[Rfam]
RNA: Nematode snoRNA ceN22
RNA sequence: GUUGCAUGGUCGAUGAAGAUGACCGUCUUAGGAAGUGCCGUCUUAAUUGCUUUGAUUAAAGUUAGGACGCUGAGGCCA
Numbered sequence: 001g002u003u004g005c006a007u008g009g010u011c012g013a014u015g016a017a018g019a020u021g022a023c024c025g026u027c028u029u030a031g032g033a034a035g036u037g038c039c040g041u042c043u044u045a046a047u048u049g050c051u052u053u054g055a056u057u058a059a060a061g062u063u064a065g066g067a068c069g070c071u072g073a074g075g076c077c078a
Stems, first nucleotide, its partner, number of pairs: 008077004